[Rfam]
RNA sequence: UGUUCAUCAAGAGCUGGCUGAGGGAAUGGCCCGAUGACGCUGCGGCAACCAUCGCAAUUUGCGAACGGUGCCAAUUCCACAGGAUACUUUCCUGGCAGAUGAAGA
Numbered sequence: 001u002g003u004u005c006a007u008c009a010a011g012a013g014c015u016g017g018c019u020g021a022g023g024g025a026a027u028g029g030c031c032c033g034a035u036g037a038c039g040c041u042g043c044g045g046c047a048a049c050c051a052u053c054g055c056a057a058u059u060u061g062c063g064a065a066c067g068g069u070g071c072c073a074a075u076u077c078c079a080c081a082g083g084a085u086a087c088u089u090u091c092c093u094g095g096c097a098g099a100u101g102a103a104g105a
Stems, first nucleotide, its partner, number of pairs: 001105001003103006013043001015042004022032003027079003044072004049068002052064003076097001080094005

The family of this 105-nucleotide sequence from Sporomusa sphaeroides is "SAM riboswitch aptamer (S box leader)".
The base pairs follow the family's consensus structure, which is taken from published work.
Its family is annotated with regulation of gene expression in the Gene Ontology.
The match comes from Rfam's covariance-model search (77 bits).
Taxonomically the source falls in Sporomusa sphaeroides (Bacteria, Bacillota, Negativicutes, Selenomonadales).